The family of this 94-nucleotide RNA sequence from Serpentinimonas raichei is "Glycine riboswitch aptamer". It scores 69 bits against the family's covariance model. Taxonomically the source falls in Serpentinimonas (Bacteria, Pseudomonadota, Burkholderiales, Comamonadaceae).
RNA sequence: AUACACGCGUCGGGAGAGACUCGGUUGAUUGCAGCCGGGCGCCGAAGGUGCAACCGCCCCGGAAACUCUCAGGCAAAAGGACCGGCGUGUGUGA
Numbered sequence: 001a002u003a004c005a006c007g008c009g010u011c012g013g014g015a016g017a018g019a020c021u022c023g024g025u026u027g028a029u030u031g032c033a034g035c036c037g038g039g040c041g042c043c044g045a046a047g048g049u050g051c052a053a054c055c056g057c058c059c060c061g062g063a064a065a066c067u068c069u070c071a072g073g074c075a076a077a078a079g080g081a082c083c084g085g086c087g088u089g090u091g092u093g094a
Base pairs, nucleotide, nucleotide: 006089007088008087009086010085011084012083013082020039021038022037023036024035025034026033041074042073043072044070045069048068050066054062055061